[Rfam]
RNA sequence: GGGGAUGUAACUCAGUGGUAGAGUGCCUGCUUCGCAUCUUAUGACUUGUGCUUGCAUGAAGUCCAGGGUUCAACUCCCUGCUUCUCCA
Numbered sequence: 001g002g003g004g005a006u007g008u009a010a011c012u013c014a015g016u017g018g019u020a021g022a023g024u025g026c027c028u029g030c031u032u033c034g035c036a037u038c039u040u041a042u043g044a045c046u047u048g049u050g051c052u053u054g055c056a057u058g059a060a061g062u063c064c065a066g067g068g069u070u071c072a073a074c075u076c077c078c079u080g081c082u083u084c085u086c087c088a
Stems, first nucleotide, its partner, number of pairs: 001087005007081001010024004026058001028056003064080005

tRNA: an 88-nucleotide RNA from Rhodotorula diobovata. The match comes from Rfam's covariance-model search (51 bits).